Annotation
This 120-nucleotide sequence from Suricata suricatta belongs to the Rfam family "Small nucleolar RNA SNORA26". The family's consensus secondary structure was predicted with RNAalifold. The family is grouped with related families in Rfam's "SNORA27 clan". For this family Rfam cites "RNomics: an experimental approach that identifies 201 candidates for novel, small, non-messenger RNAs in mouse" (Huttenhofer et al., EMBO J, 2001). About the family: The snoRNA HBI-6 belong to the H/ACA family of snoRNAs, guiding the pseudouridylation of position U4522 if the 28S rRNA. HBI-6 is the human orthologue of mouse MBI-6 snoRNA.
[Rfam]
RNA sequence: GUGCCCUUUUAAGGCUGACGCAGGGCCUUAAGAGGCUAACACAGAAGGGUAAAGGAAAUUUCCAUAAAACCCAGGGAAGAGACUAAAACUCCUCUCCGGAUCCGGUCUGGAGUUACAGCU
Numbered sequence: 001g002u003g004c005c006c007u008u009u010u011a012a013g014g015c016u017g018a019c020g021c022a023g024g025g026c027c028u029u030a031a032g033a034g035g036c037u038a039a040c041a042c043a044g045a046a047g048g049g050u051a052a053a054g055g056a057a058a059u060u061u062c063c064a065u066a067a068a069a070c071c072c073a074g075g076g077a078a079g080a081g082a083c084u085a086a087a088a089c090u091c092c093u094c095u096c097c098g099g100a101u102c103c104g105g106u107c108u109g110g111a112g113u114u115a116c117a118g119c120u
Stems, first nucleotide, its partner, number of pairs: 002051009014040001016038002019035001021032001058114001060112005071099002074096004079091003